Overview:
The record is a 94-nucleotide RNA sequence from Paracidovorax valerianellae, which matches "SAH (S-adenosyl-L-homocysteine) riboswitch aptamer" in Rfam. Lineage of the source: Bacteria > Pseudomonadati > Betaproteobacteria > Burkholderiales > Paracidovorax.
RNA sequence: GCCCCCGAGGAGCGUUGCAGCGCCUGCCGAUCAAUCGGCUCAAGGUGUCAGGCUCGGGCGGCGCUGGCCCACUGUCCAACGACGCUCACCUGUU
Numbered sequence: 001g002c003c004c005c006c007g008a009g010g011a012g013c014g015u016u017g018c019a020g021c022g023c024c025u026g027c028c029g030a031u032c033a034a035u036c037g038g039c040u041c042a043a044g045g046u047g048u049c050a051g052g053c054u055c056g057g058g059c060g061g062c063g064c065u066g067g068c069c070c071a072c073u074g075u076c077c078a079a080c081g082a083c084g085c086u087c088a089c090c091u092g093u094u
Base pairs, nucleotide, nucleotide: 002060004058005057006056007055008054021047022046023045024044025043